[Rfam]
RNA sequence: GUGCCGCUCCGGCGGCGCGCGAGCUCCUCAAGGGGGGCCUGAGGGCGGGGGUGAUGCCGUGUCGGCGCAGCAUCACCCCCGUGAC
Dot-bracket structure: (((((((....))))))).((.(((((.....))).)).))...(((((((((((((.(((....))).)))))))))))))...
Shown here is an 85-nucleotide RNA, a member of the family "Streptomyces RNA 6106". On this family, see Vockenhuber et al., RNA Biol 2011: "Deep sequencing-based identification of small non-coding RNAs in Streptomyces coelicolor". Rfam describes the family as follows. Identified by deep sequencing of transcriptome at the end of exponential growth phase. Pairs were carried over by alignment from the consensus structure.